[Rfam]
A member of the RNA family "Small nucleolar RNA snoR74" from Oryza meridionalis, 130 nucleotides long. NCBI's taxonomy places the organism under Eukaryota, Magnoliopsida, commelinids, Poaceae, Oryza. For this family Rfam cites "Experimental RNomics: identification of 140 candidates for small non-messenger RNAs in the plant Arabidopsis thaliana" (Marker et al., Curr Biol, 2002). The family has 9 seed sequences and 1,404 matches in Rfam 15.1. The family's consensus secondary structure was predicted with WAR.
RNA sequence: AAAAAAGCAGGAUGUUCUCUAUGUAAGCGGUUCUCCUAAACUUUAGGAAUAUCUUUGUCAUUGUUAUUGGGUGAACCUGUGGACUUAAAACUUGACGUCUACUAUUGAUUCAGUAAACUGUGACACAUUU
Numbered sequence: 001a002a003a004a005a006a007g008c009a010g011g012a013u014g015u016u017c018u019c020u021a022u023g024u025a026a027g028c029g030g031u032u033c034u035c036c037u038a039a040a041c042u043u044u045a046g047g048a049a050u051a052u053c054u055u056u057g058u059c060a061u062u063g064u065u066a067u068u069g070g071g072u073g074a075a076c077c078u079g080u081g082g083a084c085u086u087a088a089a090a091c092u093u094g095a096c097g098u099c100u101a102c103u104a105u106u107g108a109u110u111c112a113g114u115a116a117a118c119u120g121u122g123a124c125a126c127a128u129u130u
Stems, first nucleotide, its partner, number of pairs: 005043003011032002014028001057124005063118003072112004077107001
Dot-bracket structure: ....(((...((.(.............)..))........))).............(((((.(((......((((.(.............................).))))...))).)))))......